[Rfam]
RNA sequence: UUGUUAAAUGAUGAUGUGGUAGAUAGAGUGCCUCAUCAUCAUUCUUUGUCACUCACACGUCAUUGUUAUGUCAUUGAAGGUGAUAACGUGACAAUGACGUGUGAGUGAUAAGGCGUGAUUACGUGGUAAUUUGUCUGUCAUCUCAUCACGUAACGAAA
Numbered sequence: 001u002u003g004u005u006a007a008a009u010g011a012u013g014a015u016g017u018g019g020u021a022g023a024u025a026g027a028g029u030g031c032c033u034c035a036u037c038a039u040c041a042u043u044c045u046u047u048g049u050c051a052c053u054c055a056c057a058c059g060u061c062a063u064u065g066u067u068a069u070g071u072c073a074u075u076g077a078a079g080g081u082g083a084u085a086a087c088g089u090g091a092c093a094a095u096g097a098c099g100u101g102u103g104a105g106u107g108a109u110a111a112g113g114c115g116u117g118a119u120u121a122c123g124u125g126g127u128a129a130u131u132u133g134u135c136u137g138u139c140a141u142c143u144c145a146u147c148a149c150g151u152a153a154c155g156a157a158a
Stems, first nucleotide, its partner, number of pairs: 001156006009148006016141012029128004034123001036121001038119005044113003048109005054103005070087002073084002
Rfam assigns this 158-nucleotide RNA sequence from Glycine soja to the family "MIR4371 microRNA precursor family". A search with the family's covariance model found it, with a score of 111 bits.